[Rfam]
RNA sequence: GUCAGUGGUUUUACCCUAUGGUAGGUGACAUCAUGCUGUUCUACCACAGGGUAGAACCACGGACGGG
Numbered sequence: 001g002u003c004a005g006u007g008g009u010u011u012u013a014c015c016c017u018a019u020g021g022u023a024g025g026u027g028a029c030a031u032c033a034u035g036c037u038g039u040u041c042u043a044c045c046a047c048a049g050g051g052u053a054g055a056a057c058c059a060c061g062g063a064c065g066g067g
Stems, first nucleotide, its partner, number of pairs: 002062002005060013019046007028039003

mir-140 microRNA precursor family: a 67-nucleotide RNA from Takifugu rubripes. It is one of the family's seed sequences. The family's consensus secondary structure was predicted with RNAalifold.